[Rfam]
RNA sequence: GAAGCGGAAGCCGAAAAGCUAGAGAGUAGGCA
Number, nucleotide and partner (000 for none) at each position: 001g000002a000003a020004g019005c018006g000007g000008a000009a000010g031011c030012c029013g000014a000015a000016a000017a000018g005019c004020u003021a000022g000023a000024g000025a000026g000027u000028a000029g012030g011031c010032a000